Bacterial small signal recognition particle RNA: a 97-nucleotide RNA sequence from Hydrocoleum sp. CS-953. Its family is annotated with signal recognition particle, plasma membrane targeting and SRP-dependent cotranslational protein targeting to membrane, signal sequence recognition in the Gene Ontology. Pairs were carried over by alignment from the consensus structure, which is taken from published work. From the family's description: The signal recognition particle (SRP) is a universally conserved ribonucleoprotein involved in the co-translational targeting of proteins to membranes. Rfam classes the family as a non-coding RNA gene.
RNA sequence: GAUUCGGACCAGCGCGACUAGAACGCCUAAACCUUGUCAGGACCGGAAGGUAGCAGCAACAUGGGAUGCUUGUAGUAGGCGUUGACUCCGGGUCACC
Numbered sequence: 001g002a003u004u005c006g007g008a009c010c011a012g013c014g015c016g017a018c019u020a021g022a023a024c025g026c027c028u029a030a031a032c033c034u035u036g037u038c039a040g041g042a043c044c045g046g047a048a049g050g051u052a053g054c055a056g057c058a059a060c061a062u063g064g065g066a067u068g069c070u071u072g073u074a075g076u077a078g079g080c081g082u083u084g085a086c087u088c089c090g091g092g093u094c095a096c097c
Stems, first nucleotide, its partner, number of pairs: 004091005010084005017076004022071001026065004034059004042051003